This 81-nucleotide RNA sequence from Patiria miniata belongs to the Rfam family "Small nucleolar RNA SNORD35". Rfam describes the family as follows. U35 is a C/D box snoRNA located in intron 6 of ribosomal protein L13A and intron 3 of ribosomal protein S11 in humans and at homologous positions in mouse and chicken ribosomal protein genes. U35 guides the methylation of 2'-O-ribose sites in 28S rRNA. For this family Rfam cites "Intron-encoded, antisense small nucleolar RNAs: the characterization of nine novel species points to their direct role as guides for the 2'-O-ribose methylation of rRNAs" (Nicoloso et al., J Mol Biol, 1996). Clan: SNORD35 clan. Its family is annotated with nucleolus and RNA processing in the Gene Ontology. Lineage of the source: Eukaryota > Eumetazoa > Deuterostomia > Valvatacea > Patiria.
RNA sequence: UGCAAAUGAUGUUUUCUCACGAUGGUCUUCUGACAUAUUGUCAUGGUGACACUGCCUUUUGGCAAGUACUGAUGCAGUUAC
Numbered sequence: 001u002g003c004a005a006a007u008g009a010u011g012u013u014u015u016c017u018c019a020c021g022a023u024g025g026u027c028u029u030c031u032g033a034c035a036u037a038u039u040g041u042c043a044u045g046g047u048g049a050c051a052c053u054g055c056c057u058u059u060u061g062g063c064a065a066g067u068a069c070u071g072a073u074g075c076a077g078u079u080a081c
Base pairs, nucleotide, nucleotide: 001076002075003074004073